[Rfam]
RNA: Plastid-psbN 5UTR RNA
Organism: Rippkaea orientalis
RNA sequence: UGAAAACCCCCAUUAGAGGAGUUGUUCCCCAACCAGGAACUACUUUUCCAUACUCAGAGUUU
Dot-bracket structure: .................(((((.(((((.......))))).)))))................
Numbered sequence: 001u002g003a004a005a006a007c008c009c010c011c012a013u014u015a016g017a018g019g020a021g022u023u024g025u026u027c028c029c030c031a032a033c034c035a036g037g038a039a040c041u042a043c044u045u046u047u048c049c050a051u052a053c054u055c056a057g058a059g060u061u062u
Stems, first nucleotide, its partner, number of pairs: 018046005024040005